[Rfam]
RNA sequence: AACUAAGACAAGCCUAAAUUUCAGAGAUGAAAUACGGGGGAUAAUAUUCAGGGGUGAAUCUUUUUGUUAAAAAAGUAGGGGAAAUCCCAUUCCCGAACCCGUCAACUAACCUCGCAGGCAAAAUUAAGGGGGAUU
Numbered sequence: 001a002a003c004u005a006a007g008a009c010a011a012g013c014c015u016a017a018a019u020u021u022c023a024g025a026g027a028u029g030a031a032a033u034a035c036g037g038g039g040g041a042u043a044a045u046a047u048u049c050a051g052g053g054g055u056g057a058a059u060c061u062u063u064u065u066g067u068u069a070a071a072a073a074a075g076u077a078g079g080g081g082a083a084a085u086c087c088c089a090u091u092c093c094c095g096a097a098c099c100c101g102u103c104a105a106c107u108a109a110c111c112u113c114g115c116a117g118g119c120a121a122a123a124u125u126a127a128g129g130g131g132g133a134u135u
Base pairs, nucleotide, nucleotide: 012119013118014117018033019032020031021030022029023028035114036113037112038111039110042051052100053099054098060075061074062073063072078094079093080092081091
RNA: c-di-AMP riboswitch aptamer (ydaO/yuaA leader)
Organism: Clostridium luticellarii